[Rfam]
RNA: Group II catalytic intron D1-D4-3
Organism: Heliophilum fasciatum
RNA sequence: UCCGUCGCGAGGCGGAAUCUGAAGGAAGCCGGCGGCAAACCUCCGGCCCGAGGACCACGAACCCCAGGAGAGGCUAGCGGCAGCUGGAUGAGCUUGCAAAUCAAAGCGAAGUCCUUGUCACCGAAGGCUGUCGAGAGUAGAUGGGGCGGGUAGAUGGAGGGAAAGACAGCGUU
Numbered sequence: 001u002c003c004g005u006c007g008c009g010a011g012g013c014g015g016a017a018u019c020u021g022a023a024g025g026a027a028g029c030c031g032g033c034g035g036c037a038a039a040c041c042u043c044c045g046g047c048c049c050g051a052g053g054a055c056c057a058c059g060a061a062c063c064c065c066a067g068g069a070g071a072g073g074c075u076a077g078c079g080g081c082a083g084c085u086g087g088a089u090g091a092g093c094u095u096g097c098a099a100a101u102c103a104a105a106g107c108g109a110a111g112u113c114c115u116u117g118u119c120a121c122c123g124a125a126g127g128c129u130g131u132c133g134a135g136a137g138u139a140g141a142u143g144g145g146g147c148g149g150g151u152a153g154a155u156g157g158a159g160g161g162a163a164a165g166a167c168a169g170c171g172u173u
Base pairs, nucleotide, nucleotide: 001016002015003014004013005012006011028173030171031170036165040160041159042158043157044156045155046151047150048149049148050147062146063145064144065143066142073138074137075136079132080131081130082129083128084127086114087113088112089111092107093106094105095104